This 84-nucleotide sequence from Papaver nudicaule belongs to the Rfam family "Small nucleolar RNA Z102/R77". Its family is annotated with RNA processing and nucleolus in the Gene Ontology. It scores 78 bits against the family's covariance model. Rfam classes the family as a C/D-box small nucleolar RNA. The source organism's lineage runs through Eukaryota, Streptophyta, Streptophytina, Tracheophyta and Papaver.

RNA sequence: GAAUGAGGUGAUGAUUAGGUAAAUUCCCUAUUGGUUUGAUCGCCGUAAUGAUGGCUCGAAUGUAUUAGCUCUAGCUGAUCAUUC
Numbered sequence: 001g002a003a004u005g006a007g008g009u010g011a012u013g014a015u016u017a018g019g020u021a022a023a024u025u026c027c028c029u030a031u032u033g034g035u036u037u038g039a040u041c042g043c044c045g046u047a048a049u050g051a052u053g054g055c056u057c058g059a060a061u062g063u064a065u066u067a068g069c070u071c072u073a074g075c076u077g078a079u080c081a082u083u084c
Stems, first nucleotide, its partner, number of pairs: 002083004038057001042055003